This 88-nucleotide RNA sequence from Actinoplanes sp. ATCC 53533 belongs to the Rfam family "Glycine riboswitch aptamer". Lineage of the source: Bacteria > Bacillati > Actinomycetota > Micromonosporales > Actinoplanes.
RNA sequence: UACACCCGCGCGGGAGAGACCAUCCCGGUGGCGCCGAAGGGGCAAAUCCUCCCCGGAACCUCUCAGGCAAAAGGACCGUGUGGGUAGG
Numbered sequence: 001u002a003c004a005c006c007c008g009c010g011c012g013g014g015a016g017a018g019a020c021c022a023u024c025c026c027g028g029u030g031g032c033g034c035c036g037a038a039g040g041g042g043c044a045a046a047u048c049c050u051c052c053c054c055g056g057a058a059c060c061u062c063u064c065a066g067g068c069a070a071a072a073g074g075a076c077c078g079u080g081u082g083g084g085u086a087g088g
Base pairs, nucleotide, nucleotide: 006083007082008081009080010079011078012077013076020031021030022029023028033068034067035066036064037063040062041061042060047055